[Rfam]
Small nucleolar RNA SNORA5: a 138-nucleotide RNA from Galbula dea. Its family is annotated with nucleolus and RNA processing in the Gene Ontology. Rfam's curators write: ACA5 is a member of the H/ACA class of snoRNA that guide the sites of modification of uridines to pseudouridines. The base pairs follow the family's consensus structure, which was predicted with RNAfold. The match comes from Rfam's covariance-model search (71 bits). It is annotated as an H/ACA-box small nucleolar RNA. Rfam 15.1 lists 2,226 matches to the family in 629 species. The source organism's lineage runs through Eukaryota, Bilateria, Dinosauria, Theropoda and Galbula.
RNA sequence: UGCAGCCCUGUCAAAUUCAGUGCCUGCCUGCACCGUGGCAGGGACUGGCCAAACGGCUGCCACAGCAACUGCUGUGGUCCAGGAGCCCCAGGUCCCCUUCCCAUGGGACCCCAGGGCCAAAAUCCCACCCGGACAUUG
Number, nucleotide and partner (000 for none) at each position: 001u000002g060003c059004a058005g057006c000007c000008c000009u000010g000011u000012c000013a000014a000015a000016u000017u000018c047019a046020g045021u044022g000023c042024c041025u040026g039027c038028c037029u000030g000031c000032a000033c000034c000035g000036u000037g028038g027039c026040a025041g024042g023043g000044a021045c020046u019047g018048g000049c000050c000051a000052a000053a000054c000055g000056g000057c005058u004059g003060c002061c000062a000063c000064a000065g000066c000067a000068a000069c000070u000071g000072c000073u000074g130075u000076g129077g128078u127079c000080c000081a000082g000083g000084a000085g000086c116087c115088c114089c000090a000091g111092g110093u000094c000095c000096c000097c000098u000099u000100c000101c000102c000103a000104u000105g000106g000107g000108a000109c000110c092111c091112c000113a000114g088115g087116g086117c000118c000119a000120a000121a000122a000123u000124c000125c000126c000127a078128c077129c076130c074131g000132g000133a000134c000135a000136u000137u000138g000